Description
The record is a 77-nucleotide sequence from Caenorhabditis briggsae, which matches "Small nucleolar RNA sn2429" in Rfam. The family's consensus secondary structure was predicted with WAR.
RNA sequence: UGGGAAUGAUGACUUUCUGUUGUAGGAAUCUCAAUGAGCGACUGUGAUAUAAAAAUGCAGUAAUCUCACUGACCCCA
Numbered sequence: 001u002g003g004g005a006a007u008g009a010u011g012a013c014u015u016u017c018u019g020u021u022g023u024a025g026g027a028a029u030c031u032c033a034a035u036g037a038g039c040g041a042c043u044g045u046g047a048u049a050u051a052a053a054a055a056u057g058c059a060g061u062a063a064u065c066u067c068a069c070u071g072a073c074c075c076c077a
Stems, first nucleotide, its partner, number of pairs: 001077004